[Rfam]
RNA: Small Cajal body specific RNA 6
Organism: Triplophysa tibetana
RNA sequence: GGUCAGUGAUGUGAUGUAAAAGGUCUGAUGUCUAGCUCUCCGUCAGUCUCAUUGCUCCUCCCAGCCGCCCCUGCUCAUUUCCCAGCAUGCUCUAGUCGUGUUUUGUUGGUUUGAGGGGCAGCUGAUACUCUGGACGUUUUUGCUAAAUUAAGAGUCUCUUAAAGAAUAAAGUGAGUUCUGAACAGCAGCGUCCGACAUCAACAUGACACACAGGAGGGCGAGACUGAUGGAGACGGGCCAACUGAUCUCAAAACUCAAACUGAGACC
Numbered sequence: 001g002g003u004c005a006g007u008g009a010u011g012u013g014a015u016g017u018a019a020a021a022g023g024u025c026u027g028a029u030g031u032c033u034a035g036c037u038c039u040c041c042g043u044c045a046g047u048c049u050c051a052u053u054g055c056u057c058c059u060c061c062c063a064g065c066c067g068c069c070c071c072u073g074c075u076c077a078u079u080u081c082c083c084a085g086c087a088u089g090c091u092c093u094a095g096u097c098g099u100g101u102u103u104u105g106u107u108g109g110u111u112u113g114a115g116g117g118g119c120a121g122c123u124g125a126u127a128c129u130c131u132g133g134a135c136g137u138u139u140u141u142g143c144u145a146a147a148u149u150a151a152g153a154g155u156c157u158c159u160u161a162a163a164g165a166a167u168a169a170a171g172u173g174a175g176u177u178c179u180g181a182a183c184a185g186c187a188g189c190g191u192c193c194g195a196c197a198u199c200a201a202c203a204u205g206a207c208a209c210a211c212a213g214g215a216g217g218g219c220g221a222g223a224c225u226g227a228u229g230g231a232g233a234c235g236g237g238c239c240a241a242c243u244g245a246u247c248u249c250a251a252a253a254c255u256c257a258a259a260c261u262g263a264g265a266c267c
Base pairs, nucleotide, nucleotide: 001267002266003265004264034248035247037245038244040230041229042228043227044226045225046224047223058216059215060214061213062124063123064122065121067119068118082109083108084107085106086105087104089102090100132193133192134191135190136189137188138187151179152178153177154176155175157173159171160170